This 69-nucleotide RNA from Tenebrio molitor belongs to the Rfam family "mir-71 microRNA precursor family". It scores 71 bits against the family's covariance model.
[Rfam]
RNA sequence: ACUGCGUGAAAGACAUGGGUAGUGAGAUGUUUUAUAAUUGUGUCUCACUACCUUGUCUUUCAUGUGGAG
Numbered sequence: 001a002c003u004g005c006g007u008g009a010a011a012g013a014c015a016u017g018g019g020u021a022g023u024g025a026g027a028u029g030u031u032u033u034a035u036a037a038u039u040g041u042g043u044c045u046c047a048c049u050a051c052c053u054u055g056u057c058u059u060u061c062a063u064g065u066g067g068a069g
Stems, first nucleotide, its partner, number of pairs: 008061008017053003021049009

On this family, see Liu et al., BMC Genomics 2010: "MicroRNAs of Bombyx mori identified by Solexa sequencing".